About this RNA
A member of the RNA family "Transposase-1 RNA", 59 nucleotides long. The family's consensus secondary structure is taken from published work. The sequence is in the family's curated seed alignment.
RNA sequence: CGUUAAGAGAUCGCCUCUGUCGUUACUUGCAAUUGCAAAUACGGGAAUGUGAUUGUUGA
Numbered sequence: 001c002g003u004u005a006a007g008a009g010a011u012c013g014c015c016u017c018u019g020u021c022g023u024u025a026c027u028u029g030c031a032a033u034u035g036c037a038a039a040u041a042c043g044g045g046a047a048u049g050u051g052a053u054u055g056u057u058g059a
Stems, first nucleotide, its partner, number of pairs: 009054006020044004027038003